[Rfam]
RNA sequence: AUUAUAAUGAUGAAAAUAUUCAGGAAGUGCCGUCUGAGUUUACAUGUUGACGAUAAUGAAAUAAUCUGAACAUAAUUG
Number, nucleotide and partner (000 for none) at each position: 001a000002u000003u000004a000005u078006a077007a076008u075009g000010a000011u000012g000013a000014a000015a000016a000017u000018a000019u000020u000021c000022a000023g000024g000025a000026a000027g000028u000029g000030c000031c000032g000033u000034c000035u000036g000037a000038g000039u000040u000041u000042a000043c000044a000045u000046g000047u000048u000049g000050a000051c000052g000053a000054u000055a000056a000057u000058g000059a000060a000061a000062u000063a000064a000065u000066c000067u000068g000069a000070a000071c000072a000073u000074a000075a008076u007077u006078g005
RNA: small nucleolar RNA snoR28
Organism: Plasmodium ovale